[Rfam]
RNA sequence: AGACGUCUCACGGGGUGCUCCAUCUGGGAGCUGAGAGGCGCCGACGCGCCAACCCGUCGAACCUGAUCCGGGUCGUGCCGGCGUAGGGAUGAGCGACGAUGGCCGC
Numbered sequence: 001a002g003a004c005g006u007c008u009c010a011c012g013g014g015g016u017g018c019u020c021c022a023u024c025u026g027g028g029a030g031c032u033g034a035g036a037g038g039c040g041c042c043g044a045c046g047c048g049c050c051a052a053c054c055c056g057u058c059g060a061a062c063c064u065g066a067u068c069c070g071g072g073u074c075g076u077g078c079c080g081g082c083g084u085a086g087g088g089a090u091g092a093g094c095g096a097c098g099a100u101g102g103c104c105g106c
Stems, first nucleotide, its partner, number of pairs: 007093004011056004017031005038049004062087004068081004
RNA: TPP riboswitch aptamer (THI element)